A member of the RNA family "FMN riboswitch aptamer (RFN element)" from Alicyclobacillus acidocaldarius, 138 nucleotides long. Its family is annotated with FMN binding in the Gene Ontology. It scores 118 bits against the family's covariance model. The family's consensus secondary structure is taken from published work.

RNA sequence: AGGAACCUUCGGGGCAGGGUGAAAUUCCCGACCGGCGGUGAUGGCUUCGUGCCUAAGCCCGCGACUCGCCAUGUUGUGGCGACGGAUUUGGUGAGACUCCAAAGCCGACGGUGAAAGUCCGGAUGGGAGAAGGUUCGC
Numbered sequence: 001a002g003g004a005a006c007c008u009u010c011g012g013g014g015c016a017g018g019g020u021g022a023a024a025u026u027c028c029c030g031a032c033c034g035g036c037g038g039u040g041a042u043g044g045c046u047u048c049g050u051g052c053c054u055a056a057g058c059c060c061g062c063g064a065c066u067c068g069c070c071a072u073g074u075u076g077u078g079g080c081g082a083c084g085g086a087u088u089u090g091g092u093g094a095g096a097c098u099c100c101a102a103a104g105c106c107g108a109c110g111g112u113g114a115a116a117g118u119c120c121g122g123a124u125g126g127g128a129g130a131a132g133g134u135u136c137g138c
Stems, first nucleotide, its partner, number of pairs: 003136008017029003031118002033107002035062004057105002066082002087103005109121003